[Rfam]
RNA: Small nucleolar RNA SNORD18
RNA sequence: AGUAAAUGAUGAGAUUCCAUUGGUCCGUGUUUCUGAACUACAUGAUUUUCCUUGGCUAUUCUGAUACU
Numbered sequence: 001a002g003u004a005a006a007u008g009a010u011g012a013g014a015u016u017c018c019a020u021u022g023g024u025c026c027g028u029g030u031u032u033c034u035g036a037a038c039u040a041c042a043u044g045a046u047u048u049u050c051c052u053u054g055g056c057u058a059u060u061c062u063g064a065u066a067c068u
Base pairs, nucleotide, nucleotide: 001068002067003066004065